The family of this 118-nucleotide RNA sequence from Novipirellula galeiformis is "Group II catalytic intron D1-D4-2". The match comes from Rfam's covariance-model search (118 bits). Group II introns are found in rRNA, tRNA and mRNA of organelles in fungi, plants and protists, and also in mRNA in bacteria. A reference for the family is Bonen and Vogel (2001), "The ins and outs of group II introns", Trends Genet.
RNA sequence: GAGGGUAGGUCCCUCGCAGCCGGUCUGCGGAGGCAGGCUGCAAACCACCGUAAGCGGCUGUGGCCAAAAGCCAUGGUCGUGAGCGUUACGGAAAAGGCGAGGCUUGACCUUGUCAGGU
Numbered sequence: 001g002a003g004g005g006u007a008g009g010u011c012c013c014u015c016g017c018a019g020c021c022g023g024u025c026u027g028c029g030g031a032g033g034c035a036g037g038c039u040g041c042a043a044a045c046c047a048c049c050g051u052a053a054g055c056g057g058c059u060g061u062g063g064c065c066a067a068a069a070g071c072c073a074u075g076g077u078c079g080u081g082a083g084c085g086u087u088a089c090g091g092a093a094a095a096g097g098c099g100a101g102g103c104u105u106g107a108c109c110u111u112g113u114c115a116g117g118u
Stems, first nucleotide, its partner, number of pairs: 001015005016041006023034004046117001048091006054080002057077003061073004096114006